[Rfam]
RNA sequence: AGGCGAUGAUGACAGAAAUCAAUUUCUCGAUGCUGAUAUCAGUGUCACUUACAGUCUUUCUAACUUGAUGACCUAUUUGUGCGUGUCUGAGCCUU
Numbered sequence: 001a002g003g004c005g006a007u008g009a010u011g012a013c014a015g016a017a018a019u020c021a022a023u024u025u026c027u028c029g030a031u032g033c034u035g036a037u038a039u040c041a042g043u044g045u046c047a048c049u050u051a052c053a054g055u056c057u058u059u060c061u062a063a064c065u066u067g068a069u070g071a072c073c074u075a076u077u078u079g080u081g082c083g084u085g086u087c088u089g090a091g092c093c094u095u
Stems, first nucleotide, its partner, number of pairs: 001094004
The family of this 95-nucleotide sequence from Ipomoea nil is "small nucleolar RNA snoR126". The base pairs follow the family's consensus structure, which was predicted with RNAalifold. Lineage of the source: Eukaryota > Streptophyta > Spermatophyta > Convolvulaceae > Ipomoea. Its family is annotated with nucleolus and RNA processing in the Gene Ontology.